[Rfam]
A member of the RNA family "TD-1 RNA" from Treponema pedis, 126 nucleotides long. The source organism's lineage runs through Bacteria, Pseudomonadati, Treponemataceae, Treponema and Treponema pedis. On this family, see Weinberg et al., Nucleic Acids Res 2007: "Identification of 22 candidate structured RNAs in bacteria using the CMfinder comparative genomics pipeline". Its Rfam clan is "TD (Treponema denticola) motifs". By type it is a cis-regulatory element.
RNA sequence: AGCCCGUAUCGAGUUUGCCUUUCGGCAAACAUCGGAUAUUAUAUGCCGUUUCUCAUUACAUUACGAAACGGCUGAAAAUCAUCAAUGCUCGAUUUUUGAUAAAAUCUGCGCUUGAUGAUUUUAUCU
Dot-bracket structure: ..........(((((((((....))))))).))...........((((((((............))))))))....(((((((((.((..((((((....))))))...)))))))))))......
Numbered sequence: 001a002g003c004c005c006g007u008a009u010c011g012a013g014u015u016u017g018c019c020u021u022u023c024g025g026c027a028a029a030c031a032u033c034g035g036a037u038a039u040u041a042u043a044u045g046c047c048g049u050u051u052c053u054c055a056u057u058a059c060a061u062u063a064c065g066a067a068a069c070g071g072c073u074g075a076a077a078a079u080c081a082u083c084a085a086u087g088c089u090c091g092a093u094u095u096u097u098g099a100u101a102a103a104a105u106c107u108g109c110g111c112u113u114g115a116u117g118a119u120u121u122u123a124u125c126u
Stems, first nucleotide, its partner, number of pairs: 011033002013030007045072008077120009087111002091106006